[Rfam]
RNA: mir-395 microRNA precursor family
RNA sequence: GUAUUGCCAUGAGUUUCCUGCAAGCACUUCACGAGGCACUAUCGAUCCCAAGGGCUACUGUGAAGUGUUUGGAGGAACUCUUGGUGUCAC
Numbered sequence: 001g002u003a004u005u006g007c008c009a010u011g012a013g014u015u016u017c018c019u020g021c022a023a024g025c026a027c028u029u030c031a032c033g034a035g036g037c038a039c040u041a042u043c044g045a046u047c048c049c050a051a052g053g054g055c056u057a058c059u060g061u062g063a064a065g066u067g068u069u070u071g072g073a074g075g076a077a078c079u080c081u082u083g084g085u086g087u088c089a090c
Stems, first nucleotide, its partner, number of pairs: 005086005011080007019072001022070012036056001